Group II catalytic intron D1-D4-7: a 145-nucleotide sequence from Marchantia polymorpha. Lineage of the source: Eukaryota > Viridiplantae > Marchantiophyta > Marchantia > Marchantia polymorpha. The match comes from Rfam's covariance-model search (44 bits).
RNA sequence: CCAUCCCAGCCGACGGGAUGCUCCUACUUCACCAUGCCCUCCCGGUAACGGGUGGGUAUGAAGCGUGGGGAACGAUGUAAGAAGUAUAGUUACAGCAUAUAACCUGCUAGGAGUGGCAAGACUACGGAUCAACGCAAGUGAAAUG
Numbered sequence: 001c002c003a004u005c006c007c008a009g010c011c012g013a014c015g016g017g018a019u020g021c022u023c024c025u026a027c028u029u030c031a032c033c034a035u036g037c038c039c040u041c042c043c044g045g046u047a048a049c050g051g052g053u054g055g056g057u058a059u060g061a062a063g064c065g066u067g068g069g070g071a072a073c074g075a076u077g078u079a080a081g082a083a084g085u086a087u088a089g090u091u092a093c094a095g096c097a098u099a100u101a102a103c104c105u106g107c108u109a110g111g112a113g114u115g116g117c118a119a120g121a122c123u124a125c126g127g128a129u130c131a132a133c134g135c136a137a138g139u140g141a142a143a144u145g
Base pairs, nucleotide, nucleotide: 002020003019004018005017006016007015028069029068030067031066032065033060034059035058036057037056038055039054041052042051043050044049084093085092086091096126098124099123104116105115106114107113108112135145136144